A member of the RNA family "mir-150 microRNA precursor family" from Equus caballus, 65 nucleotides long. The organism belongs to Equus, within Eukaryota. It is one of the family's seed sequences. A reference for the family is Coutinho et al. (2007), "Discovery and profiling of bovine microRNAs from immune-related and embryonic tissues", Physiol Genomics. Gene Ontology terms of the family: RISC complex and miRNA-mediated post-transcriptional gene silencing.
RNA sequence: CCCUGUCUCCCAACCCUUGUACCAGUGCUGUGCCUCGGUCCCUGGUACAGGCAUGGGGGGCAGGG
Numbered sequence: 001c002c003c004u005g006u007c008u009c010c011c012a013a014c015c016c017u018u019g020u021a022c023c024a025g026u027g028c029u030g031u032g033c034c035u036c037g038g039u040c041c042c043u044g045g046u047a048c049a050g051g052c053a054u055g056g057g058g059g060g061c062a063g064g065g
Base pairs, nucleotide, nucleotide: 002064003063004062006060007059008058009057010056014051015050018049019048020047021046022045023044024043